Overview
Rfam assigns this 205-nucleotide RNA from Diabrotica virgifera to the family "R2 RNA element". A reference for the family is Ruschak et al. (2004), "Secondary structure models of the 3' untranslated regions of diverse R2 RNAs", RNA. This family represents the 3' UTR region of the R2 retrotransposable element. The family has 15 seed sequences and 3,698 matches in Rfam 15.1. The match comes from Rfam's covariance-model search (45 bits). Lineage of the source: Eukaryota > Hexapoda > Endopterygota > Diabroticina > Diabrotica virgifera. Rfam links the family to the GO term regulation of reverse transcription.
[Rfam]
RNA sequence: AGAUAGGCGAAGAGUAGGUUAGGUUAUAUUGUAUGCCGAUGGGUCAGAGUUCAGCCAGCUAAGUUUGGAUCCAGCCUAGUCAGUUGGAGAAAGAGGGGGUGAGUUUAGUUGGUAGGCGGCUCACUACGGUUAGAAGUAGCGAGAUGAAUCCAACACGCCUUCAACAUCUUCCCAGGAGUCUUUAUAAGAUUCUCACCUCCCAAAA
Numbered sequence: 001a002g003a004u005a006g007g008c009g010a011a012g013a014g015u016a017g018g019u020u021a022g023g024u025u026a027u028a029u030u031g032u033a034u035g036c037c038g039a040u041g042g043g044u045c046a047g048a049g050u051u052c053a054g055c056c057a058g059c060u061a062a063g064u065u066u067g068g069a070u071c072c073a074g075c076c077u078a079g080u081c082a083g084u085u086g087g088a089g090a091a092a093g094a095g096g097g098g099g100u101g102a103g104u105u106u107a108g109u110u111g112g113u114a115g116g117c118g119g120c121u122c123a124c125u126a127c128g129g130u131u132a133g134a135a136g137u138a139g140c141g142a143g144a145u146g147a148a149u150c151c152a153a154c155a156c157g158c159c160u161u162c163a164a165c166a167u168c169u170u171c172c173c174a175g176g177a178g179u180c181u182u183u184a185u186a187a188g189a190u191u192c193u194c195a196c197c198u199c200c201c202a203a204a205a
Stems, first nucleotide, its partner, number of pairs: 037058001040057003064204005096199007108154005117146002120143003124133002126130001156178001158176003